This 81-nucleotide RNA from Rhizocola hellebori belongs to the Rfam family "ZMP/ZTP riboswitch aptamer (pfl RNA motif)".
[Rfam]
RNA sequence: CGCCUUGACCGCGACUGGCGCACAGGGUGGAUCACCACAGGGGAGCGAAGCGUUCGGGCACCGCGCGCCUGGGUGUCCGGU
Numbered sequence: 001c002g003c004c005u006u007g008a009c010c011g012c013g014a015c016u017g018g019c020g021c022a023c024a025g026g027g028u029g030g031a032u033c034a035c036c037a038c039a040g041g042g043g044a045g046c047g048a049a050g051c052g053u054u055c056g057g058g059c060a061c062c063g064c065g066c067g068c069c070u071g072g073g074u075g076u077c078c079g080g081u
Stems, first nucleotide, its partner, number of pairs: 003050001005048001010047003015042002017069005027038004058076005
A search with the family's covariance model found it, with a score of 51 bits.
Its family is annotated with one-carbon metabolic process and regulation of purine nucleotide biosynthetic process in the Gene Ontology.